[Rfam]
RNA sequence: UCCUCGCCCAAACAAUCGCAAAGCAGUUCACACACCGACUGUGCUCGCACGGUCAAGAUACGCAGCUGUUGGGAAAGUCCCCGGACACCUGAUCUUCGUGAUCAGAAUUGCUGAAAAGCGCCGCCACAGAAGCACAUUGCGGCUUACCUCACCUUCGACCUCCAUCCACCUGUUGCACGUCCCCGCACCACUCGUACUCCCAUUCUUCGAUCUCAGAGCUCGGGUCAUACCAUUCGUUCGGCCCAACGCUUGCGGUGCCUUUUACAAGGGGACGAUGAUACGAGUCCGUGCCCUGCGUUUGCUGGUCUCGCCGCUCUGGGCUUUGGAGGCUGGGAGGAGGUGAGAGGAGCGUUGCGGAGGUACAACUUGGGCUCAAGGCUGAAGGCGGGGACCAUUCGUCGUGGUCGAUAGAUAUGCGAUUGCCUGUCCUUGUCACUCAUACUGCGCAUCACUCGGUAUGCAGGAGAGAGACUUGGAUGGAUAACUCGAUGGGGCUUAUUCUUGGUGCGAGG
Numbered sequence: 001u002c003c004u005c006g007c008c009c010a011a012a013c014a015a016u017c018g019c020a021a022a023g024c025a026g027u028u029c030a031c032a033c034a035c036c037g038a039c040u041g042u043g044c045u046c047g048c049a050c051g052g053u054c055a056a057g058a059u060a061c062g063c064a065g066c067u068g069u070u071g072g073g074a075a076a077g078u079c080c081c082c083g084g085a086c087a088c089c090u091g092a093u094c095u096u097c098g099u100g101a102u103c104a105g106a107a108u109u110g111c112u113g114a115a116a117a118g119c120g121c122c123g124c125c126a127c128a129g130a131a132g133c134a135c136a137u138u139g140c141g142g143c144u145u146a147c148c149u150c151a152c153c154u155u156c157g158a159c160c161u162c163c164a165u166c167c168a169c170c171u172g173u174u175g176c177a178c179g180u181c182c183c184c185g186c187a188c189c190a191c192u193c194g195u196a197c198u199c200c201c202a203u204u205c206u207u208c209g210a211u212c213u214c215a216g217a218g219c220u221c222g223g224g225u226c227a228u229a230c231c232a233u234u235c236g237u238u239c240g241g242c243c244c245a246a247c248g249c250u251u252g253c254g255g256u257g258c259c260u261u262u263u264a265c266a267a268g269g270g271g272a273c274g275a276u277g278a279u280a281c282g283a284g285u286c287c288g289u290g291c292c293c294u295g296c297g298u299u300u301g302c303u304g305g306u307c308u309c310g311c312c313g314c315u316c317u318g319g320g321c322u323u324u325g326g327a328g329g330c331u332g333g334g335a336g337g338a339g340g341u342g343a344g345a346g347g348a349g350c351g352u353u354g355c356g357g358a359g360g361u362a363c364a365a366c367u368u369g370g371g372c373u374c375a376a377g378g379c380u381g382a383a384g385g386c387g388g389g390g391a392c393c394a395u396u397c398g399u400c401g402u403g404g405u406c407g408a409u410a411g412a413u414a415u416g417c418g419a420u421u422g423c424c425u426g427u428c429c430u431u432g433u434c435a436c437u438c439a440u441a442c443u444g445c446g447c448a449u450c451a452c453u454c455g456g457u458a459u460g461c462a463g464g465a466g467a468g469a470g471a472c473u474u475g476g477a478u479g480g481a482u483a484a485c486u487c488g489a490u491g492g493g494g495c496u497u498a499u500u501c502u503u504g505g506u507g508c509g510a511g512g
Stems, first nucleotide, its partner, number of pairs: 002512006008505004014421006022070006038053006075497003079494004109120004304393003311389002315385002320379004327373002330370001359363001424480005

The record is a 512-nucleotide RNA sequence from Teratosphaeria destructans, which matches "RNase MRP" in Rfam. The organism belongs to Teratosphaeria, within Eukaryota. About the family: RNase MRP is an enzymatically active ribonucleoprotein with two distinct roles in eukaryotes. In mitochondria it plays a direct role in the initiation of mitochondrial DNA replication.